The record is a 411-nucleotide sequence from Fulvivirga marina, which matches "Bacterial RNase P class A" in Rfam. It scores 274 bits against the family's covariance model. The source organism's lineage runs through Bacteria, Cytophagia, Cytophagales, Fulvivirgaceae and Fulvivirga.
[Rfam]
Nucleotides: 411
Base pairs, nucleotide, nucleotide: 001407002406003405004404005403006402007401008400009399010398011396012360013359014358015357016356017355018354020039021038022037023036024035025034026033027032044394045393046392048391049390050389051388052387053227054226055225056224062290065223066222067221068220069219070084071083072082073081074080085108086106087105088104089103090102091101092100093099109218110217114216115215116212117211118210131158132157134153135152137150138149139148140147141146166184167183168182169181170180171179185207186205187204188203189202192199193198231315232314233313234312241306242305243304244303245302246301285295286294287293324343325342326341327340328339329338330337331336
Number, partner (000 for none) and nucleotide at each position: 001407a002406a003405u004404g005403c006402a007401a008400g009399c010398u011396g012360g013359c014358u015357u016356a017355u018354c019000g020039u021038u022037c023036u024035u025034c026033g027032g028000a029000a030000u031000a032027c033026c034025g035024a036023a037022g038021g039020a040000a041000g042000g043000a044394a045393a046392g047000u048391c049390c050389g051388g052387g053227c054226a055225a056224c057000a058000c059000a060000g061000a062290g063000c064000a065223u066222c067221g068220u069219a070084c071083u072082u073081c074080c075000u076000a077000a078000c079000g080074g081073g082072a083071a084070g085108g086106c087105u088104u089103c090102u091101c092100g093099g094000u095000u096000c097000u098000a099093c100092c101091g102090a103089g104088g105087g106086g107000a108085c109218a110217g111000a112000c113000a114216g115215u116212g117211c118210c119000a120000c121000a122000g123000a124000a125000a126000a127000c128000a129000a130000a131158c132157u133000a134153c135152c136000u137150c138149u139148g140147a141146u142000u143000a144000c145000u146141a147140u148139c149138a150137g151000c152135g153134g154000a155000a156000a157132a158131g159000g160000u161000g162000a163000a164000a165000a166184g167183g168182u169181g170180a171179g172000g173000u174000a175000a176000g177000a178000g179171c180170u181169c182168a183167c184166c185207g186205c187204c188203c189202c190000g191000a192199a193198g194000g195000u196000a197000a198193c199192u200000a201000a202189g203188g204187g205186g206000g207185c208000a209000c210118g211117g212116u213000a214000a215115a216114c217110c218109u219069u220068a221067c222066g223065a224056g225055u226054u227053g228000a229000a230000a231315g232314a233313u234312c235000a236000a237000a238000u239000a240000a241306g242305u243304c244303a245302c246301g247000c248000u249000a250000g251000c252000c253000u254000g255000c256000c257000u258000a259000g260000g261000c262000g263000g264000c265000u266000g267000u268000c269000a270000g271000g272000c273000u274000g275000c276000u277000c278000g279000u280000c281000u282000g283000a284000c285295u286294u287293u288000c289000u290062u291000c292000g293287g294286a295285a296000a297000u298000a299000a300000g301246c302245g303244u304243g305242a306241u307000g308000g309000g310000u311000a312234g313233a314232u315231c316000g317000c318000u319000u320000u321000u322000g323000a324343u325342c326341u327340c328339a329338a330337c331336g332000g333000u334000g335000a336331c337330g338329u339328u340327g341326a342325g343324g344000c345000u346000a347000g348000a349000u350000a351000a352000a353000u354018g355017a356016u357015a358014a359013g360012c361000c362000a363000u364000c365000c366000c367000g368000a369000c370000u371000u372000g373000u374000c375000g376000g377000g378000a379000g380000g381000a382000c383000a384000g385000a386000a387052c388051c389050c390049g391048g392046c393045u394044u395000a396011c397000a398010g399009g400008c401007u402006u403005g404004c405003a406002u407001u408000u409000u410000u411000u